Shown here is a 70-nucleotide RNA sequence from Mangrovibacillus cuniculi, a member of the family "Bacillaceae-1 RNA".
A search with the family's covariance model found it, with a score of 35 bits.
The family's RNA type in Rfam is small RNA.
The organism belongs to Mangrovibacillus, within Bacteria.
RNA sequence: AACAAAGGAGACUCAUCUAAGUACAAGCCACAUCACGUGGCUAACGAUGAGUUGUUACUGGUCACGUAAC
Numbered sequence: 001a002a003c004a005a006a007g008g009a010g011a012c013u014c015a016u017c018u019a020a021g022u023a024c025a026a027g028c029c030a031c032a033u034c035a036c037g038u039g040g041c042u043a044a045c046g047a048u049g050a051g052u053u054g055u056u057a058c059u060g061g062u063c064a065c066g067u068a069a070c
Stems, first nucleotide, its partner, number of pairs: 011052007027041005054070005